6S / SsrS RNA: a 180-nucleotide RNA from Pediococcus acidilactici. The base pairs follow the family's consensus structure, which is taken from published work. It is annotated as a non-coding RNA gene. It scores 49 bits against the family's covariance model.
[Rfam]
RNA sequence: AAGAAACCGAGGCAUGCGAGAGGAUUGGUUUCAUAUUCUUCCAACAAACAUCUAACCGGGAACCCGGAUCGUACGUGAAUUGUAGGCUCGUAAGCGAGAAACGUGCAGCGUAGGUAUGGGUACCCACCUUGCCUUUUGGGUUAGAUCCUGGCCAAUCUGAACGGUGUCGUUAGUUCUUCC
Numbered sequence: 001a002a003g004a005a006a007c008c009g010a011g012g013c014a015u016g017c018g019a020g021a022g023g024a025u026u027g028g029u030u031u032c033a034u035a036u037u038c039u040u041c042c043a044a045c046a047a048a049c050a051u052c053u054a055a056c057c058g059g060g061a062a063c064c065c066g067g068a069u070c071g072u073a074c075g076u077g078a079a080u081u082g083u084a085g086g087c088u089c090g091u092a093a094g095c096g097a098g099a100a101a102c103g104u105g106c107a108g109c110g111u112a113g114g115u116a117u118g119g120g121u122a123c124c125c126a127c128c129u130u131g132c133c134u135u136u137u138g139g140g141u142u143a144g145a146u147c148c149u150g151g152c153c154a155a156u157c158u159g160a161a162c163g164g165u166g167u168c169g170u171u172a173g174u175u176c177u178u179c180c
Stems, first nucleotide, its partner, number of pairs: 002178002005175003009171002012167004017163002035146002038144002041140002058125003062121005070114001072112005082102002087098004
Dot-bracket structure: .((.(((.((.((((.((................((.((.((...............(((.(((((...(.(((((.....((...((((....))))..)).....))))).)..))))).))).............))..))))...............))))))..)).))).))..